RNA sequence: CCUGACUUGAGUCUCUCCUCAGGGUGCUAUAGGCAAGGCUGGGGAUCCAGGGAGAGACGUAAGUAAGG
Dot-bracket structure: .((.((((..(((((((((..((((.((.(((......))))).)))).)))))))))..)))).)).
Numbered sequence: 001c002c003u004g005a006c007u008u009g010a011g012u013c014u015c016u017c018c019u020c021a022g023g024g025u026g027c028u029a030u031a032g033g034c035a036a037g038g039c040u041g042g043g044g045a046u047c048c049a050g051g052g053a054g055a056g057a058c059g060u061a062a063g064u065a066a067g068g
Stems, first nucleotide, its partner, number of pairs: 002067002005064004011058009022048004027043002030041003